[Rfam]
Rfam assigns this 125-nucleotide sequence from Bacillus sp. PK3_68 to the family "PyrR binding site". A reference for the family is Bonner et al. (2001), "Molecular recognition of pyr mRNA by the Bacillus subtilis attenuation regulatory protein PyrR", Nucleic Acids Res. The family's consensus secondary structure is taken from published work. Rfam's curators write: This family represents the PyrR binding site and terminator structure. This RNA structure is found upstream of a variety of genes involved in pyrimidine biosynthesis and transport. The alignment also includes a portion of the antiterminator structure.
RNA sequence: AAGACCUUUAAAAACAGUCCCGUGAGGCUGGGAAGGUGACGGAUCAUAUGCAGGGAGAAGCUAUGUCUUCCUCGCAUAUUUACACGCAUCUAUCCUCUCGUCUACGCGGCGGGAGGAUUUUUUUA
Numbered sequence: 001a002a003g004a005c006c007u008u009u010a011a012a013a014a015c016a017g018u019c020c021c022g023u024g025a026g027g028c029u030g031g032g033a034a035g036g037u038g039a040c041g042g043a044u045c046a047u048a049u050g051c052a053g054g055g056a057g058a059a060g061c062u063a064u065g066u067c068u069u070c071c072u073c074g075c076a077u078a079u080u081u082a083c084a085c086g087c088a089u090c091u092a093u094c095c096u097c098u099c100g101u102c103u104a105c106g107c108g109g110c111g112g113g114a115g116g117a118u119u120u121u122u123u124u125a
Base pairs, nucleotide, nucleotide: 004037005036006035007034008033009032015030016029017028018027019026046079047078048077049076050075051074053072054071055070056069057068059066088122092118093117094116095115096114097113098112099111100110101109